Rfam assigns this 158-nucleotide RNA from Paenibacillus sp. GP183 to the family "Ribosomal protein L10 leader". The organism belongs to Paenibacillus, within Bacteria.
RNA sequence: CAAAAAUGAAUACGCAAACCGUAGACAGUAGGUGCUCUUCUUGAGCUUAAUUUCCUACCGAGGUGUUAUGAUAAAACGAUCCAUUUCUUUGGUAACAAGGAAAAGAGUCAGCGAAUCAUGCCUUCGUACAUUCUACGAAGGCAUUUCUUAUUUCAUAA
Numbered sequence: 001c002a003a004a005a006a007u008g009a010a011u012a013c014g015c016a017a018a019c020c021g022u023a024g025a026c027a028g029u030a031g032g033u034g035c036u037c038u039u040c041u042u043g044a045g046c047u048u049a050a051u052u053u054c055c056u057a058c059c060g061a062g063g064u065g066u067u068a069u070g071a072u073a074a075a076a077c078g079a080u081c082c083a084u085u086u087c088u089u090u091g092g093u094a095a096c097a098a099g100g101a102a103a104a105g106a107g108u109c110a111g112c113g114a115a116u117c118a119u120g121c122c123u124u125c126g127u128a129c130a131u132u133c134u135a136c137g138a139a140g141g142c143a144u145u146u147c148u149u150a151u152u153u154c155a156u157a158a
Stems, first nucleotide, its partner, number of pairs: 028058005034046003119143010